[Rfam]
RNA sequence: UGGCCUGCAGAGAGAGAGGUAGGGUCUGAUCCCCAGUCUCUGUGGCAGCUGUUGAUCAGUGUUGCCUCUUUCUUUCUCUCCC
Numbered sequence: 001u002g003g004c005c006u007g008c009a010g011a012g013a014g015a016g017a018g019g020u021a022g023g024g025u026c027u028g029a030u031c032c033c034c035a036g037u038c039u040c041u042g043u044g045g046c047a048g049c050u051g052u053u054g055a056u057c058a059g060u061g062u063u064g065c066c067u068c069u070u071u072c073u074u075u076c077u078c079u080c081c082c
Base pairs, nucleotide, nucleotide: 010074011073012072013071014070015069016068017067018066019065020064021063022062024060026059027058028057029056030055031054034051035050036049037048
The family of this 82-nucleotide RNA sequence from Cnephaeus nilssonii is "mir-574 microRNA precursor family".
Its family is annotated with RISC complex and miRNA-mediated post-transcriptional gene silencing in the Gene Ontology.
The family has 6 seed sequences and 4,084 matches in Rfam 15.1.
The match comes from Rfam's covariance-model search (81 bits).
Taxonomically the source falls in Cnephaeus (Eukaryota, Deuterostomia, Tetrapoda, Laurasiatheria).
The family's consensus secondary structure was predicted with RNAalifold.